Notes: The family of this 89-nucleotide RNA from Brassica napus is "Small nucleolar RNA R11/Z151". The family's consensus secondary structure was predicted with PFOLD. Its family is annotated with nucleolus and RNA processing in the Gene Ontology. NCBI's taxonomy places the organism under Eukaryota, Viridiplantae, Embryophyta, Brassicaceae, Brassica. A reference for the family is Barneche et al. (2001), "Identification of 66 box C/D snoRNAs in Arabidopsis thaliana: extensive gene duplications generated multiple isoforms predicting new ribosomal RNA 2'-O-methylation sites", J Mol Biol.
RNA sequence: UGGCCGAUGAGGAUAAAAACAAUUAUCUUAGCGGAUUUCAGUGAGGUUUUUCAAAUCAAUGAUCUGAAUUGUUACACACACUGAGGCUA
Numbered sequence: 001u002g003g004c005c006g007a008u009g010a011g012g013a014u015a016a017a018a019a020c021a022a023u024u025a026u027c028u029u030a031g032c033g034g035a036u037u038u039c040a041g042u043g044a045g046g047u048u049u050u051u052c053a054a055a056u057c058a059a060u061g062a063u064c065u066g067a068a069u070u071g072u073u074a075c076a077c078a079c080a081c082u083g084a085g086g087c088u089a
Base pairs, nucleotide, nucleotide: 001089002088003087004086005085
Dot-bracket structure: (((((...............................................................................)))))